Rfam assigns this 180-nucleotide sequence from Sulfitobacter noctilucicola to the family "Ruegeria cis52 sRNA".
Its family is annotated with regulation of gene expression in the Gene Ontology.
It is annotated as a small RNA.
It scores 120 bits against the family's covariance model.
[Rfam]
RNA sequence: UUGCGCAAUGCGUGUUUGAGCACGAUAUCAGAGAACUUCACACCCUUAAGGCGCGCCGUGCGAAUAUAUUGCGCGGUCAUAACCUCGGCCAUAGAGGCCCGCGUCAUCCGCGCGAUAUAUCCCAUGCCAUAAAGCGAAAUCGUCAACACCGGCAGGAAGAAAUUCCAGAAGUUUGCAUCC
Numbered sequence: 001u002u003g004c005g006c007a008a009u010g011c012g013u014g015u016u017u018g019a020g021c022a023c024g025a026u027a028u029c030a031g032a033g034a035a036c037u038u039c040a041c042a043c044c045c046u047u048a049a050g051g052c053g054c055g056c057c058g059u060g061c062g063a064a065u066a067u068a069u070u071g072c073g074c075g076g077u078c079a080u081a082a083c084c085u086c087g088g089c090c091a092u093a094g095a096g097g098c099c100c101g102c103g104u105c106a107u108c109c110g111c112g113c114g115a116u117a118u119a120u121c122c123c124a125u126g127c128c129a130u131a132a133a134g135c136g137a138a139a140u141c142g143u144c145a146a147c148a149c150c151g152g153c154a155g156g157a158a159g160a161a162a163u164u165c166c167a168g169a170a171g172u173u174u175g176c177a178u179c180c
Base pairs, nucleotide, nucleotide: 004142005141007140009138011136012135013134015132016131017129018128020127021126022125031122039114041112043110047106049104051102052101053100055098056076057075058074059073060072061071062070063069083097084096085095086094148178150175151174152173155166156165157164158163